[Rfam]
RNA sequence: GACAAACUAAACGGGUAUCCUUCGAGGAUUGAGAUUAUACCGUUUGAACUCGAUCAAGUUGAAACUUGCGUGAGGAUUUAGUUUGUACUAACAA
Numbered sequence: 001g002a003c004a005a006a007c008u009a010a011a012c013g014g015g016u017a018u019c020c021u022u023c024g025a026g027g028a029u030u031g032a033g034a035u036u037a038u039a040c041c042g043u044u045u046g047a048a049c050u051c052g053a054u055c056a057a058g059u060u061g062a063a064a065c066u067u068g069c070g071u072g073a074g075g076a077u078u079u080a081g082u083u084u085g086u087a088c089u090a091a092c093a094a
Stems, first nucleotide, its partner, number of pairs: 006082005011043004016037001017029005049074004055068004
Dot-bracket structure: .....(((((((((.((((((...))))).......)..)))).....((((..((((......))))..))))...)))))............
This 94-nucleotide RNA belongs to the Rfam family "TPP riboswitch aptamer (THI element)". The match comes from Rfam's covariance-model search (64 bits).